[Rfam]
RNA sequence: ACACGAGAAGGGAGGUGGUCCAAACUUUGUAUGCUCAUAGGACUCGUGAGGUGACUGUCCGCUAGCCGGUCUCGUGGUCCUCACCUCUAGCCGGGUGGCCCACGGGCACCGGCACCGGCGAGUACCAGGCAGAUCACCCGACCCCCGGGCUGCCGUCGACAAGUCCCGACGGCCCGUUGUCCGCAUCGCGCGGCGACGGAGGCACCCGGGGGUCGCUCGUU
Numbered sequence: 001a002c003a004c005g006a007g008a009a010g011g012g013a014g015g016u017g018g019u020c021c022a023a024a025c026u027u028u029g030u031a032u033g034c035u036c037a038u039a040g041g042a043c044u045c046g047u048g049a050g051g052u053g054a055c056u057g058u059c060c061g062c063u064a065g066c067c068g069g070u071c072u073c074g075u076g077g078u079c080c081u082c083a084c085c086u087c088u089a090g091c092c093g094g095g096u097g098g099c100c101c102a103c104g105g106g107c108a109c110c111g112g113c114a115c116c117g118g119c120g121a122g123u124a125c126c127a128g129g130c131a132g133a134u135c136a137c138c139c140g141a142c143c144c145c146c147g148g149g150c151u152g153c154c155g156u157c158g159a160c161a162a163g164u165c166c167c168g169a170c171g172g173c174c175c176g177u178u179g180u181c182c183g184c185a186u187c188g189c190g191c192g193g194c195g196a197c198g199g200a201g202g203c204a205c206c207c208g209g210g211g212g213u214c215g216c217u218c219g220u221u
Stems, first nucleotide, its partner, number of pairs: 014059006060120004065115001068113001070111001139215011152173006
RNA: Actinobacteria sRNA Ms_IGR-5
Organism: Frankia canadensis